[Rfam]
Nucleotides: 132
Stems, first nucleotide, its partner, number of pairs: 003055006010049001016041005022035001024033003059071001061069002077118004081110003085105007
Number, partner (000 for none) and nucleotide at each position: 001000c002000u003055g004054c005053a006052c007051a008050g009000c010049g011000a012000a013000c014000a015000c016041c017040c018039a019038a020037g021000u022035g023000u024033g025032c026031u027000u028000u029000g030000u031026a032025g033024u034000u035022c036000c037020c038019u039018u040017g041016g042000u043000u044000u045000c046000a047000g048000u049010c050008c051007u052006g053005u054004g055003c056000u057000a058000a059071a060000u061069u062068a063000a064000c065000c066000u067000g068062u069061a070000c071059u072000u073000u074000u075000c076000c077118u078117c079116u080115g081110c082109a083108u084000u085105g086104g087103a088102a089101g090100g091099a092000u093000u094000u095000c096000c097000a098000u099091u100090c101089c102088u103087u104086u105085u106000a107000c108083a109082u110081g111000u112000a113000u114000u115080c116079a117078g118077a119000a120000g121000g122000a123000c124000a125000g126000g127000a128000c129000a130000c131000a132000c
The record is a 132-nucleotide RNA sequence from Sinosuthora webbiana, which matches "Small nucleolar RNA SNORA22" in Rfam. The organism belongs to Sinosuthora, within Eukaryota. Rfam's curators write: ACA22 is a member of the H/ACA class of snoRNA that guide the sites of modification of uridines to pseudouridines.